[Rfam]
RNA sequence: GGAUCCACCGUGACUCCCCCAAAAACGUUCCUGUGAAAGAUGAACCAAACGAGUGAGAUGUCUGCAGUGCCGUCCUCACCGUGACCGAGGUCC
Numbered sequence: 001g002g003a004u005c006c007a008c009c010g011u012g013a014c015u016c017c018c019c020c021a022a023a024a025a026c027g028u029u030c031c032u033g034u035g036a037a038a039g040a041u042g043a044a045c046c047a048a049a050c051g052a053g054u055g056a057g058a059u060g061u062c063u064g065c066a067g068u069g070c071c072g073u074c075c076u077c078a079c080c081g082u083g084a085c086c087g088a089g090g091u092c093c
Stems, first nucleotide, its partner, number of pairs: 001093005026055005032047002
RNA: Small nucleolar RNA SNORD116